Source information:
mir-203 microRNA precursor family: a 79-nucleotide sequence from Cyprinus carpio. NCBI's taxonomy places the organism under Eukaryota, Eumetazoa, Bilateria, Cyprininae, Cyprinus. On this family, see Chen et al., Genes Dev 2005: "The developmental miRNA profiles of zebrafish as determined by small RNA cloning". Gene Ontology terms of the family: RISC complex and miRNA-mediated post-transcriptional gene silencing.

RNA sequence: UCCUCUUUGGCCGAGUGGUUCUUAACAGUUCAACAGUUCUUUUGAAAAUUGUGAAAUGUUCAGGACCACUUGAUCAGAC
Numbered sequence: 001u002c003c004u005c006u007u008u009g010g011c012c013g014a015g016u017g018g019u020u021c022u023u024a025a026c027a028g029u030u031c032a033a034c035a036g037u038u039c040u041u042u043u044g045a046a047a048a049u050u051g052u053g054a055a056a057u058g059u060u061c062a063g064g065a066c067c068a069c070u071u072g073a074u075c076a077g078a079c
Stems, first nucleotide, its partner, number of pairs: 014070006021063002024060004029055004